RNA sequence: CUGCAUUCUAAACCCUCCUGGUAGCUUGGUUAUUAGCUUCCAGGAUAAGAAUGAAUGCCAGAGAAAACUGAUGAUUAAUCCAAAAUGUGGAGCUCUUCUGUGGCUCUUCAUUAUUUCACAUCUUCAACAUUU
Numbered sequence: 001c002u003g004c005a006u007u008c009u010a011a012a013c014c015c016u017c018c019u020g021g022u023a024g025c026u027u028g029g030u031u032a033u034u035a036g037c038u039u040c041c042a043g044g045a046u047a048a049g050a051a052u053g054a055a056u057g058c059c060a061g062a063g064a065a066a067a068c069u070g071a072u073g074a075u076u077a078a079u080c081c082a083a084a085a086u087g088u089g090g091a092g093c094u095c096u097u098c099u100g101u102g103g104c105u106c107u108u109c110a111u112u113a114u115u116u117c118a119c120a121u122c123u124u125c126a127a128c129a130u131u132u
Base pairs, nucleotide, nucleotide: 003058004057005056006055007051009049016045017044018043019042020041021040023038024037025036062132063131064130069126070125071124073122074121084112085111086110087109089107090106092104093103095100
Description
This 132-nucleotide sequence from Eubucco bourcierii belongs to the Rfam family "Small nucleolar RNA SNORA14". The organism belongs to Eubucco, within Eukaryota. About the family: ACA14 is a member of the H/ACA class of snoRNA that guide the sites of modification of uridines to pseudouridines. It is annotated as an H/ACA-box small nucleolar RNA. Gene Ontology terms of the family: nucleolus and RNA processing. The match comes from Rfam's covariance-model search (102 bits).